Notes: This 102-nucleotide RNA sequence from Jatropha curcas belongs to the Rfam family "mir-393 microRNA precursor family". The pairing is the family consensus, mapped onto this sequence. Rfam 15.1 lists 1,052 matches to the family in 221 species. The literature on the family includes a 2012 paper in J Plant Physiol by Kruszka et al., "Role of microRNAs and other sRNAs of plants in their changing environments".

RNA sequence: GAUGGAAAAUUCCUAAGGGAUCGCAUGAUCCAAUGAAUAAUUAACUCACUAAUAUAUAUUUAAUACACAUUAGAUCAAUGCGAUCCCUUUGGAACUCUCCAG
Numbered sequence: 001g002a003u004g005g006a007a008a009a010u011u012c013c014u015a016a017g018g019g020a021u022c023g024c025a026u027g028a029u030c031c032a033a034u035g036a037a038u039a040a041u042u043a044a045c046u047c048a049c050u051a052a053u054a055u056a057u058a059u060u061u062a063a064u065a066c067a068c069a070u071u072a073g074a075u076c077a078a079u080g081c082g083a084u085c086c087c088u089u090u091g092g093a094a095c096u097c098u099c100c101a102g
Base pairs, nucleotide, nucleotide: 003101004100005099006098008096010094011093012092013091015089016088017087018086019085020084021083023081024080025079026077027076028075029074030073035068